[Rfam]
Nucleotides: 084
Stems, first nucleotide, its partner, number of pairs: 002083002005080001035056001039054004
Number, partner (000 for none) and nucleotide at each position: 001000g002083u003082a004000c005080g006000a007000a008000a009000u010000g011000a012000u013000g014000a015000g016000c017000a018000a019000u020000u021000u022000u023000c024000c025000c026000u027000a028000u029000u030000g031000g032000a033000a034000u035056g036000a037000u038000a039054c040053g041052c042051u043000u044000a045000u046000a047000u048000g049000a050000u051042g052041g053040c054039g055000a056035u057000a058000c059000u060000u061000u062000g063000u064000a065000u066000u067000a068000g069000c070000u071000c072000u073000a074000u075000c076000u077000g078000a079000u080005c081000c082003u083002a084000a
Overview:
Shown here is an 84-nucleotide RNA from Chenopodium quinoa, a member of the family "Small nucleolar RNA Z102/R77". For this family Rfam cites "The high diversity of snoRNAs in plants: identification and comparative study of 120 snoRNA genes from Oryza sativa" (Chen et al., Nucleic Acids Res, 2003). By type it is a C/D-box small nucleolar RNA. Clan: SNORD44 clan.